This 296-nucleotide RNA from Colletotrichum trifolii belongs to the Rfam family "5' ureB small RNA".
The family's consensus secondary structure was predicted with mfold.
Taxonomically the source falls in Colletotrichum orbiculare species complex (Eukaryota, Opisthokonta, Pezizomycotina, Glomerellaceae).
Gene Ontology term of the family: negative regulation of gene expression.
The family has 13 seed sequences and 4,812 matches in Rfam 15.1.
RNA sequence: CCUCGUCGGCCUGCUGCGGGCAGAUGAAGUGGAUGUGGGUGUCGAUCCCGCCGGCGGUGAUGAUCUUGCCCUCGCCGGCCACGACGUCGGUGCAGCUGCCAACGACCAUGUUGGGGGCGACGCCGUCCAUGACGUCCGGGUUGCCGGCCUUGCCGAUGCCGACAAUCAUGCCAUUCUUGACUCCGAUAUCCGCCUUGUAGAUGCCGGACCAGUCGACGACGAGGGCGUUGGUGACGACCAUGUCGAGGGACUCGGAGUCCGGGCGACCGGUGGCCUGGCCCAUGCCUUCUCUCAGG
Numbered sequence: 001c002c003u004c005g006u007c008g009g010c011c012u013g014c015u016g017c018g019g020g021c022a023g024a025u026g027a028a029g030u031g032g033a034u035g036u037g038g039g040u041g042u043c044g045a046u047c048c049c050g051c052c053g054g055c056g057g058u059g060a061u062g063a064u065c066u067u068g069c070c071c072u073c074g075c076c077g078g079c080c081a082c083g084a085c086g087u088c089g090g091u092g093c094a095g096c097u098g099c100c101a102a103c104g105a106c107c108a109u110g111u112u113g114g115g116g117g118c119g120a121c122g123c124c125g126u127c128c129a130u131g132a133c134g135u136c137c138g139g140g141u142u143g144c145c146g147g148c149c150u151u152g153c154c155g156a157u158g159c160c161g162a163c164a165a166u167c168a169u170g171c172c173a174u175u176c177u178u179g180a181c182u183c184c185g186a187u188a189u190c191c192g193c194c195u196u197g198u199a200g201a202u203g204c205c206g207g208a209c210c211a212g213u214c215g216a217c218g219a220c221g222a223g224g225g226c227g228u229u230g231g232u233g234a235c236g237a238c239c240a241u242g243u244c245g246a247g248g249g250a251c252u253c254g255g256a257g258u259c260c261g262g263g264c265g266a267c268c269g270g271u272g273g274c275c276u277g278g279c280c281c282a283u284g285c286c287u288u289c290u291c292u293c294a295g296g
Stems, first nucleotide, its partner, number of pairs: 001296003005292001008289002012164002015161002018076002022072002030053003034050002037048004057069003077154002081150001083148001085146001092144005097138001098136001100134001107131002110126002113123001170279004177270003182265001183263002191227006207214001230259002236253002241250001